[Rfam]
RNA: Glutamine-II riboswitch aptamer
RNA sequence: GUCCGUUCAUCCCUUCGGGGACGCAUGACACCACAGCAUGGAACGGGGUUGUGGU
Numbered sequence: 001g002u003c004c005g006u007u008c009a010u011c012c013c014u015u016c017g018g019g020g021a022c023g024c025a026u027g028a029c030a031c032c033a034c035a036g037c038a039u040g041g042a043a044c045g046g047g048g049u050u051g052u053g054g055u
Base pairs, nucleotide, nucleotide: 004045005044006043007042008041010021011020012019013018030055031054032053033052034051035050036049037048